About this RNA:
A member of the RNA family "Actino-pnp RNA" from Streptomyces acidiscabies, 59 nucleotides long. It is annotated as a cis-regulatory element. The family's consensus secondary structure is taken from published work.
[Rfam]
RNA sequence: GCCGGUCCUCGGUAGUGGCCCCCGGGCAAUCGGCCCGGAGGCUUCGAUCGAAGACCGGC
Numbered sequence: 001g002c003c004g005g006u007c008c009u010c011g012g013u014a015g016u017g018g019c020c021c022c023c024g025g026g027c028a029a030u031c032g033g034c035c036c037g038g039a040g041g042c043u044u045c046g047a048u049c050g051a052a053g054a055c056c057g058g059c
Stems, first nucleotide, its partner, number of pairs: 001059007009051005017043004022038006

A search with the family's covariance model found it, with a score of 69 bits.